Small nucleolar RNA SNORA42/SNORA80 family: a 136-nucleotide sequence from Orycteropus afer. The family's RNA type in Rfam is H/ACA-box small nucleolar RNA. The source organism's lineage runs through Eukaryota, Opisthokonta, Afrotheria, Orycteropus and Orycteropus afer. Pairs were carried over by alignment from the consensus structure, which was predicted with RNAalifold. It scores 110 bits against the family's covariance model.
RNA sequence: GCAUGGUAAUGGAUUUAUGGCAGGCCCUUCUCAGUGGGCCUUUCAUAGUGUACCCAUGCCACAGUAAACUGCAGCCUCAUACCAUUGCCCAGACUGUUUGCCCAUGUGCUGUAGCACUGAUGGAGGCUGCACACUG
Numbered sequence: 001g002c003a004u005g006g007u008a009a010u011g012g013a014u015u016u017a018u019g020g021c022a023g024g025c026c027c028u029u030c031u032c033a034g035u036g037g038g039c040c041u042u043u044c045a046u047a048g049u050g051u052a053c054c055c056a057u058g059c060c061a062c063a064g065u066a067a068a069c070u071g072c073a074g075c076c077u078c079a080u081a082c083c084a085u086u087g088c089c090c091a092g093a094c095u096g097u098u099u100g101c102c103c104a105u106g107u108g109c110u111g112u113a114g115c116a117c118u119g120a121u122g123g124a125g126g127c128u129g130c131a132c133a134c135u136g
Stems, first nucleotide, its partner, number of pairs: 001059004005054004015048006022041003025037002072129006083119002088114001090111003095106001